[Rfam]
RNA sequence: AAACCUGGAGGUCAACGCCCGGCAGCGCGAUGCGCCCCCGGGCGCCAUACCG
Numbered sequence: 001a002a003a004c005c006u007g008g009a010g011g012u013c014a015a016c017g018c019c020c021g022g023c024a025g026c027g028c029g030a031u032g033c034g035c036c037c038c039c040g041g042g043c044g045c046c047a048u049a050c051c052g
Stems, first nucleotide, its partner, number of pairs: 016044007025035004

Shown here is a 52-nucleotide sequence from Zhengella mangrovi, a member of the family "ffh sRNA".
For this family Rfam cites "Identification of candidate structured RNAs in the marine organism 'Candidatus Pelagibacter ubique'" (Meyer et al., BMC Genomics, 2009).
Pairs were carried over by alignment from the consensus structure, which is taken from published work.
The source organism's lineage runs through Bacteria, Pseudomonadati, Alphaproteobacteria, Hyphomicrobiales and Zhengella.
A search with the family's covariance model found it, with a score of 60 bits.